[Rfam]
RNA sequence: GGUUAGCACCUUCAUCCUCGGACCGUCGGGCACGUACCUGCCCGGAGAAGGAGAAUUAC
Numbered sequence: 001g002g003u004u005a006g007c008a009c010c011u012u013c014a015u016c017c018u019c020g021g022a023c024c025g026u027c028g029g030g031c032a033c034g035u036a037c038c039u040g041c042c043c044g045g046a047g048a049a050g051g052a053g054a055a056u057u058a059c
Base pairs, nucleotide, nucleotide: 009051010050011049012048013047015045027044028043029042030041031040032039

Shown here is a 59-nucleotide RNA, a member of the family "msiK RNA". The family has 120 seed sequences and 1,374 matches in Rfam 15.1. The base pairs follow the family's consensus structure, which is taken from published work. It is annotated as a cis-regulatory element.